Annotation
Shown here is a 145-nucleotide RNA sequence from Eragrostis curvula, a member of the family "Small nucleolar RNA snoR136". It scores 57 bits against the family's covariance model. It is annotated as an H/ACA-box small nucleolar RNA. The source organism's lineage runs through Eukaryota, Mesangiospermae, commelinids, Poales and Eragrostis. On this family, see Chen and Wu, Nucleic Acids Res 2009: "Mining small RNA sequencing data: a new approach to identify small nucleolar RNAs in Arabidopsis".
RNA sequence: UAUACUGCCGCUUCUCUUGGUUCGUGCUCAUGAGCUGUUUUUGGUUCUUGAGCUUUGGAAAGACGAAGCAAAAGGUUCAAUGGUUCCUCUCGCUAUCCAGGGCAGAAUUUCUUCUGAUGCCACUGGACGUCGAGGAACUACAUUU
Numbered sequence: 001u002a003u004a005c006u007g008c009c010g011c012u013u014c015u016c017u018u019g020g021u022u023c024g025u026g027c028u029c030a031u032g033a034g035c036u037g038u039u040u041u042u043g044g045u046u047c048u049u050g051a052g053c054u055u056u057g058g059a060a061a062g063a064c065g066a067a068g069c070a071a072a073a074g075g076u077u078c079a080a081u082g083g084u085u086c087c088u089c090u091c092g093c094u095a096u097c098c099a100g101g102g103c104a105g106a107a108u109u110u111c112u113u114c115u116g117a118u119g120c121c122a123c124u125g126g127a128c129g130u131c132g133a134g135g136a137a138c139u140a141c142a143u144u145u
Base pairs, nucleotide, nucleotide: 001073003070005068008065011062012061013060016058017057019055020054026053027052028051029050030049032047033046034045035044036043083138084137085136086135087134088133089132091129092128096127097126098125099124100123105114106113107112